The record is a 164-nucleotide sequence from Tupaia belangeri, which matches "U1 spliceosomal RNA" in Rfam. A reference for the family is Zwieb (1997), "The uRNA database", Nucleic Acids Res. NCBI's taxonomy places the organism under Eukaryota, Dipnotetrapodomorpha, Euarchontoglires, Scandentia, Tupaia belangeri. U1 is a small nuclear RNA (snRNA) component of the spliceosome (involved in pre-mRNA splicing). Its 5' end forms complementary base pairs with the 5' splice junction, thus defining the 5' donor site of an intron. By type it is a spliceosomal small nuclear RNA.
RNA sequence: AUACUUACCUGGCAGGGAGAUAGCAUGAUCAUGAAGCUGGUUUUCCCAGGGUGAUGCUUAUCCAGGUGCACUCUGGAUGUGUUGACCCCUGCAAUUUCCCCAAAUGUGGGAAACUUAACUGCAUAAUUUGUGGUAAUGGGGGACUGCGUUCACACUCUCCCCUG
Numbered sequence: 001a002u003a004c005u006u007a008c009c010u011g012g013c014a015g016g017g018a019g020a021u022a023g024c025a026u027g028a029u030c031a032u033g034a035a036g037c038u039g040g041u042u043u044u045c046c047c048a049g050g051g052u053g054a055u056g057c058u059u060a061u062c063c064a065g066g067u068g069c070a071c072u073c074u075g076g077a078u079g080u081g082u083u084g085a086c087c088c089c090u091g092c093a094a095u096u097u098c099c100c101c102a103a104a105u106g107u108g109g110g111a112a113a114c115u116u117a118a119c120u121g122c123a124u125a126a127u128u129u130g131u132g133g134u135a136a137u138g139g140g141g142g143a144c145u146g147c148g149u150u151c152a153c154a155c156u157c158u159c160c161c162c163u164g
Stems, first nucleotide, its partner, number of pairs: 012122004016046005022041001024039002048090004053086001056082002059079005093116002095113003099109002138163006146155001148153001